[Rfam]
RNA sequence: UCAUGAACUUUGUACCGUGCACAUCACUUAGAUGGACCCUAGAAAGCUAGAAAGCUA
Numbered sequence: 001u002c003a004u005g006a007a008c009u010u011u012g013u014a015c016c017g018u019g020c021a022c023a024u025c026a027c028u029u030a031g032a033u034g035g036a037c038c039c040u041a042g043a044a045a046g047c048u049a050g051a052a053a054g055c056u057a
Stems, first nucleotide, its partner, number of pairs: 019037001022034004
RNA: Plastid-ndhJ 3UTR RNA